[Rfam]
RNA sequence: UGCCGGACGCCGCCGAGUCGCCCUCCCCCGGAGAGCGAGCCGGGGACCCACCGCAGCACCGGGGUGAAUCCCGCACCGAGCCCAGCUCGGCGCGAGUAGGGCGCCUUCCCGCCCGAACCCGUCAGCUAACUCGGUAGGCGGCAGCGGAAGAACGG
Numbered sequence: 001u002g003c004c005g006g007a008c009g010c011c012g013c014c015g016a017g018u019c020g021c022c023c024u025c026c027c028c029c030g031g032a033g034a035g036c037g038a039g040c041c042g043g044g045g046a047c048c049c050a051c052c053g054c055a056g057c058a059c060c061g062g063g064g065u066g067a068a069u070c071c072c073g074c075a076c077c078g079a080g081c082c083c084a085g086c087u088c089g090g091c092g093c094g095a096g097u098a099g100g101g102c103g104c105c106u107u108c109c110c111g112c113c114c115g116a117a118c119c120c121g122u123c124a125g126c127u128a129a130c131u132c133g134g135u136a137g138g139c140g141g142c143a144g145c146g147g148a149a150g151a152a153c154g155g
Stems, first nucleotide, its partner, number of pairs: 011140004018038003039135006049061001062120003070096001072094002099114004

The family of this 155-nucleotide RNA sequence from Goekera deserti is "c-di-AMP riboswitch aptamer (ydaO/yuaA leader)". The base pairs follow the family's consensus structure. This family represents a conserved RNA structure found upstream of the ydaO and yuaA genes in Bacillus subtilis and related genes in other bacteria. The organism belongs to Goekera, within Bacteria.